Rfam assigns this 131-nucleotide RNA sequence from Vicugna pacos to the family "Small nucleolar RNA U109". The match comes from Rfam's covariance-model search (106 bits). Its family is annotated with nucleolus and RNA processing in the Gene Ontology. Pairs were carried over by alignment from the consensus structure, which was predicted with WAR. Rfam classes the family as an H/ACA-box small nucleolar RNA. Taxonomically the source falls in Vicugna (Eukaryota, Craniata, Sarcopterygii, Eutheria).
RNA sequence: AGACAUGCCGAGCAGGUCCUUUUUCCUUUGGAAGCAGGAAUACAUCCAUAACAUGCUACAUUUAAAAAGGAGUUCUCAGGGCUGCCAACCUUACAGUAGAGGUUAAGUAGUGGUAUAUUUCUCCUACAAAC
Numbered sequence: 001a002g003a004c005a006u007g008c009c010g011a012g013c014a015g016g017u018c019c020u021u022u023u024u025c026c027u028u029u030g031g032a033a034g035c036a037g038g039a040a041u042a043c044a045u046c047c048a049u050a051a052c053a054u055g056c057u058a059c060a061u062u063u064a065a066a067a068a069g070g071a072g073u074u075c076u077c078a079g080g081g082c083u084g085c086c087a088a089c090c091u092u093a094c095a096g097u098a099g100a101g102g103u104u105a106a107g108u109a110g111u112g113g114u115a116u117a118u119u120u121c122u123c124c125u126a127c128a129a130a131c
Stems, first nucleotide, its partner, number of pairs: 008038002012035002017032003069124004081111002085107001087104006